[Rfam]
Shown here is a 95-nucleotide RNA sequence from Actinospica acidithermotolerans, a member of the family "ZMP/ZTP riboswitch aptamer (pfl RNA motif)". The organism belongs to Actinospica, within Bacteria.
RNA sequence: AGGGAAGGCCGCGACUGGCGCCAGCGAGGUGGAACGGACCACCGGGGAGCGGCUUGGAAUCACGACAGUGGGCACCGUGCGCCUGGGUGGCCGCC
Numbered sequence: 001a002g003g004g005a006a007g008g009c010c011g012c013g014a015c016u017g018g019c020g021c022c023a024g025c026g027a028g029g030u031g032g033a034a035c036g037g038a039c040c041a042c043c044g045g046g047g048a049g050c051g052g053c054u055u056g057g058a059a060u061c062a063c064g065a066c067a068g069u070g071g072g073c074a075c076c077g078u079g080c081g082c083c084u085g086g087g088u089g090g091c092c093g094c095c
Stems, first nucleotide, its partner, number of pairs: 006055007015046002017083005029042004073089004